Small nucleolar RNA snoR74: a 130-nucleotide RNA from Cucumis melo. By type it is an H/ACA-box small nucleolar RNA. The organism belongs to Cucumis, within Eukaryota. A reference for the family is Marker et al. (2002), "Experimental RNomics: identification of 140 candidates for small non-messenger RNAs in the plant Arabidopsis thaliana", Curr Biol. The family has 9 seed sequences and 1,404 matches in Rfam 15.1.
[Rfam]
RNA sequence: AAAAAAGCAGGGCUCUGUUGCCUAUUUUGUGAAUAGUGCUCUCGUAAACUUCAGGAAAACUGAAUGUAUCAUUAUUGGGUGAACCUCUGUAUAGAUAAUAGCUGCAGGUUCAGUAAAUGAUGCAACAUAC
Numbered sequence: 001a002a003a004a005a006a007g008c009a010g011g012g013c014u015c016u017g018u019u020g021c022c023u024a025u026u027u028u029g030u031g032a033a034u035a036g037u038g039c040u041c042u043c044g045u046a047a048a049c050u051u052c053a054g055g056a057a058a059a060c061u062g063a064a065u066g067u068a069u070c071a072u073u074a075u076u077g078g079g080u081g082a083a084c085c086u087c088u089g090u091a092u093a094g095a096u097a098a099u100a101g102c103u104g105c106a107g108g109u110u111c112a113g114u115a116a117a118u119g120a121u122g123c124a125a126c127a128u129a130c
Stems, first nucleotide, its partner, number of pairs: 005051003011040002015036005065124009080112007